[Rfam]
RNA sequence: AAGCGAAGGUCCCAGCAGAGAGGAAGGAAGUCUAUAUUGACACCUCUCUAACACUAAGAAAUACCUUCGCAGAUUAAGGUUCAGAUUAUCGGCCGGAUCGUAGGAUGCCCCAAACAUUUUCUUUGAUUUUUGGAGCGUCUAAACCCUCGGCUACAUCACA
Number, nucleotide and partner (000 for none) at each position: 001a000002a000003g070004c069005g068006a067007a066008g065009g064010u000011c020012c000013c018014a000015g000016c000017a000018g013019a000020g011021a000022g000023g000024a000025a000026g047027g046028a000029a000030g041031u040032c039033u000034a000035u000036a000037u000038u000039g032040a031041c030042a000043c000044c000045u000046c027047u026048c000049u000050a000051a000052c000053a000054c000055u000056a000057a000058g000059a000060a000061a000062u000063a000064c009065c008066u007067u006068c005069g004070c003071a000072g000073a000074u000075u000076a000077a000078g000079g000080u000081u000082c000083a000084g000085a000086u000087u000088a000089u000090c000091g000092g151093c150094c149095g148096g147097a000098u000099c000100g000101u000102a000103g000104g139105a138106u000107g136108c135109c000110c133111c132112a131113a130114a129115c000116a000117u000118u000119u000120u000121c000122u000123u000124u000125g000126a000127u000128u000129u114130u113131u112132g111133g110134a000135g108136c107137g000138u105139c104140u000141a000142a000143a000144c000145c000146c000147u096148c095149g094150g093151c092152u000153a000154c000155a000156u000157c000158a000159c000160a000

The record is a 160-nucleotide RNA sequence from Tetracentron sinense, which matches "Small nucleolar RNA snoR145" in Rfam. It scores 89 bits against the family's covariance model.